[Rfam]
RNA sequence: CCACUUAUUCUUGACAUACGUAGUUUUGUAGCUGUCAUAUGAAUGUUAAUGUGGAAAAUAAAAUUGUCAGUCGUCUUCGGAGCUGAAGUCUCUUGUUGCUUCAGAUUCUUCCUCAAUGUCUGACACAUCU
Numbered sequence: 001c002c003a004c005u006u007a008u009u010c011u012u013g014a015c016a017u018a019c020g021u022a023g024u025u026u027u028g029u030a031g032c033u034g035u036c037a038u039a040u041g042a043a044u045g046u047u048a049a050u051g052u053g054g055a056a057a058a059u060a061a062a063a064u065u066g067u068c069a070g071u072c073g074u075c076u077u078c079g080g081a082g083c084u085g086a087a088g089u090c091u092c093u094u095g096u097u098g099c100u101u102c103a104g105a106u107u108c109u110u111c112c113u114c115a116a117u118g119u120c121u122g123a124c125a126c127a128u129c130u
Base pairs, nucleotide, nucleotide: 001054002053003052004051015041016040017039018038020036021034022033023032024031068122069121070120083104084103085102086101087100088099089098
Annotation:
Shown here is a 130-nucleotide RNA sequence from Mizuhopecten yessoensis, a member of the family "Small nucleolar RNA SNORA57". U99 belongs to the H/ACA class of snoRNAs which are thought to guide the sites of modification of uridines to pseudouridines, the target for this family is unknown. It scores 40 bits against the family's covariance model. The source organism's lineage runs through Eukaryota, Bivalvia, Pteriomorphia, Pectinida and Mizuhopecten. Rfam classes the family as an H/ACA-box small nucleolar RNA.